A member of the RNA family "serC leader" from Roseibium hamelinense, 52 nucleotides long.
The organism belongs to Roseibium, within Bacteria.
From the family's description: This family is a putative regulatory RNA structure that is found upstream of the serC-serA operon in some alpha-proteobacteria. The final stem of the structure overlaps the ribosome binding site of the serC reading frame.
It is annotated as a cis-regulatory leader.
[Rfam]
RNA sequence: AGACGGGACACCCCUCCCCAACGAGGGGCACCUAUCUGUGAGGAUAGAUCAA
Dot-bracket structure: ..........((((((......))))))...((((((....)))))).....